[Rfam]
RNA sequence: CAAAAGGUCUUUGAGGGGUCUGGUGGAGCGUGGGGGGCAUGUGAAGACCACGAGGCAACUGGGAGCGGCUGGUUCCCCGGCAGUGCGUGCCUCGGCUGGGCUGGGAGCCGUGCCAGUUGAUGCCCCCAGUGGAGCGGGGUCCGCCUCCCUCCCAGAAAUCAGCUGACCAGAGGGCAUACCGGAUCCACCAGAGGCGCCGCUGCCUGCGCUCCCAGGCCGCGGGUGAAAAAGAAAACAUGGCCUCGCUUGGCCCGGAGCGAAGAGGUGUCCCAGAGCGAAGAGGUGGUCCCGAGCGAAGAGGUGGCCCAGAGUGAGGAGGUGGCCUGGAGCGAGGAAAUG
Numbered sequence: 001c002a003a004a005a006g007g008u009c010u011u012u013g014a015g016g017g018g019u020c021u022g023g024u025g026g027a028g029c030g031u032g033g034g035g036g037g038c039a040u041g042u043g044a045a046g047a048c049c050a051c052g053a054g055g056c057a058a059c060u061g062g063g064a065g066c067g068g069c070u071g072g073u074u075c076c077c078c079g080g081c082a083g084u085g086c087g088u089g090c091c092u093c094g095g096c097u098g099g100g101c102u103g104g105g106a107g108c109c110g111u112g113c114c115a116g117u118u119g120a121u122g123c124c125c126c127c128a129g130u131g132g133a134g135c136g137g138g139g140u141c142c143g144c145c146u147c148c149c150u151c152c153c154a155g156a157a158a159u160c161a162g163c164u165g166a167c168c169a170g171a172g173g174g175c176a177u178a179c180c181g182g183a184u185c186c187a188c189c190a191g192a193g194g195c196g197c198c199g200c201u202g203c204c205u206g207c208g209c210u211c212c213c214a215g216g217c218c219g220c221g222g223g224u225g226a227a228a229a230a231g232a233a234a235a236c237a238u239g240g241c242c243u244c245g246c247u248u249g250g251c252c253c254g255g256a257g258c259g260a261a262g263a264g265g266u267g268u269c270c271c272a273g274a275g276c277g278a279a280g281a282g283g284u285g286g287u288c289c290c291g292a293g294c295g296a297a298g299a300g301g302u303g304g305c306c307c308a309g310a311g312u313g314a315g316g317a318g319g320u321g322g323c324c325u326g327g328a329g330c331g332a333g334g335a336a337a338u339g
Stems, first nucleotide, its partner, number of pairs: 017102008035092006041051003059080005065074001142321007164176002167173002193210005199204001244259005

A member of the RNA family "Bag-1 internal ribosome entry site (IRES)" from Capra hircus, 339 nucleotides long. The base pairs follow the family's consensus structure, which was predicted with PFOLD. From the family's description: This family represents the bag-1 internal ribosome entry site (IRES). When expressed the BAG-1 protein is known to enhance the anti-apoptotic properties of Bcl-2. Although bag-1 translation usually occurs via a cap-dependent mechanism it has been found to contain a IRES in its 5' UTR. Translation via the IRES has been found to be common following heat shock when cap-dependent scanning is compromised. The source organism's lineage runs through Eukaryota, Opisthokonta, Bovidae, Caprinae and Capra. On this family, see Coldwell et al., Oncogene 2001: "The p36 isoform of BAG-1 is translated by internal ribosome entry following heat shock".